Rfam assigns this 226-nucleotide sequence from Miscanthus lutarioriparius to the family "MIR6217 microRNA precursor family".
It scores 176 bits against the family's covariance model.
Lineage of the source: Eukaryota > Magnoliopsida > Petrosaviidae > Andropogonodae > Miscanthus.
[Rfam]
RNA sequence: UAUAUAUAAAAUAUCUUAUUCUAUAGCCACUUUGAGGUACGAUAAUUACUAUGUUAAUUUACGAGAUUAUAGUAACUCCUUACUAAGUGGUUUACUAUAACGUUAUGGUAAAUAUCCUCAUGUGUUAUAGUAACCCAACUAUCGUAAAUAUGUUUUAACAUUAUCGUAAAUUAGUAUAUAAAACUAUCGUAAAUGGAGGUGGCUAGAAUAACUUAUUUUGUAGCUG
Numbered sequence: 001u002a003u004a005u006a007u008a009a010a011a012u013a014u015c016u017u018a019u020u021c022u023a024u025a026g027c028c029a030c031u032u033u034g035a036g037g038u039a040c041g042a043u044a045a046u047u048a049c050u051a052u053g054u055u056a057a058u059u060u061a062c063g064a065g066a067u068u069a070u071a072g073u074a075a076c077u078c079c080u081u082a083c084u085a086a087g088u089g090g091u092u093u094a095c096u097a098u099a100a101c102g103u104u105a106u107g108g109u110a111a112a113u114a115u116c117c118u119c120a121u122g123u124g125u126u127a128u129a130g131u132a133a134c135c136c137a138a139c140u141a142u143c144g145u146a147a148a149u150a151u152g153u154u155u156u157a158a159c160a161u162u163a164u165c166g167u168a169a170a171u172u173a174g175u176a177u178a179u180a181a182a183a184c185u186a187u188c189g190u191a192a193a194u195g196g197a198g199g200u201g202g203c204u205a206g207a208a209u210a211a212c213u214u215a216u217u218u219u220g221u222a223g224c225u226g
Stems, first nucleotide, its partner, number of pairs: 001226002005222009016211007025204009038191007046183002050178013065165003069161002074155001080147004087142006093132011107117002